[Rfam]
RNA sequence: CCCGCACGCGACGAAGUGAGCGAGCCCUUUGUGGCUCUGGAAAGUCCCCGGGCUUUUUAACCGCAGAGAUGCGGCCGCGGCAACGCGGAAAGUCUCGCGCCCGCGCCCUCCUCUUCACGAAGAGAGGGGUCAGAGACACGUGUGGAGACCUUGGGCGCGGGCCGAGACUAAUAAAUGGCCAAAUUUAAACAGUUAUUCACUUGAUCCAAUUCUUGGAUUAACAGAACGGGGCUUACGAUCGUGUGCAA
Numbered sequence: 001c002c003c004g005c006a007c008g009c010g011a012c013g014a015a016g017u018g019a020g021c022g023a024g025c026c027c028u029u030u031g032u033g034g035c036u037c038u039g040g041a042a043a044g045u046c047c048c049c050g051g052g053c054u055u056u057u058u059a060a061c062c063g064c065a066g067a068g069a070u071g072c073g074g075c076c077g078c079g080g081c082a083a084c085g086c087g088g089a090a091a092g093u094c095u096c097g098c099g100c101c102c103g104c105g106c107c108c109u110c111c112u113c114u115u116c117a118c119g120a121a122g123a124g125a126g127g128g129g130u131c132a133g134a135g136a137c138a139c140g141u142g143u144g145g146a147g148a149c150c151u152u153g154g155g156c157g158c159g160g161g162c163c164g165a166g167a168c169u170a171a172u173a174a175a176u177g178g179c180c181a182a183a184u185u186u187a188a189a190c191a192g193u194u195a196u197u198c199a200c201u202u203g204a205u206c207c208a209a210u211u212c213u214u215g216g217a218u219u220a221a222c223a224g225a226a227c228g229g230g231g232c233u234u235a236c237g238a239u240c241g242u243g244u245g246c247a248a
Stems, first nucleotide, its partner, number of pairs: 004246008014202006022037005042234003046231004062073004075088005091169003099162010115145004204218006